[Rfam]
RNA sequence: ACGGCUUGUUCAGUUUUACUCCUCCUAAAAAACUGAACAUCCAAAGCGUGAUACUCCUCCUCCCAAUCACGCUUUACAGAUCAGCCCGCUGCACAAUCCUCCUCCGGUGCAGCGGGCGUUCU
Numbered sequence: 001a002c003g004g005c006u007u008g009u010u011c012a013g014u015u016u017u018a019c020u021c022c023u024c025c026u027a028a029a030a031a032a033c034u035g036a037a038c039a040u041c042c043a044a045a046g047c048g049u050g051a052u053a054c055u056c057c058u059c060c061u062c063c064c065a066a067u068c069a070c071g072c073u074u075u076a077c078a079g080a081u082c083a084g085c086c087c088g089c090u091g092c093a094c095a096a097u098c099c100u101c102c103u104c105c106g107g108u109g110c111a112g113c114g115g116g117c118g119u120u121c122u
Base pairs, nucleotide, nucleotide: 007039008038009037011035012034013033014032015031016030017029043075044074045073046072047071048070049069050068051067052066084117085116086115087114088113089112090111091110092109093108094107
RNA: Alphaproteobacterial ar14
Organism: Falsochrobactrum ovis